[Rfam]
RNA sequence: GGUCAGAUCAUGGGAGAAUCAGCUUAGCUGAUGCCGAAGGAGCAACCGCCCCGGAAACUCUCAGGCCCAAGGACCGUGAUCUUGUG
Numbered sequence: 001g002g003u004c005a006g007a008u009c010a011u012g013g014g015a016g017a018a019u020c021a022g023c024u025u026a027g028c029u030g031a032u033g034c035c036g037a038a039g040g041a042g043c044a045a046c047c048g049c050c051c052c053g054g055a056a057a058c059u060c061u062c063a064g065g066c067c068c069a070a071g072g073a074c075c076g077u078g079a080u081c082u083u084g085u086g
Base pairs, nucleotide, nucleotide: 006081007080008079009078010077011076012075013074019031020030021029022028033066034065035064036062037061040060041059042058046054047053
This 86-nucleotide RNA sequence from Sulfitobacter noctilucicola belongs to the Rfam family "Glycine riboswitch aptamer".
It scores 59 bits against the family's covariance model.
Rfam's curators write: This family represents the bacterial glycine riboswitch.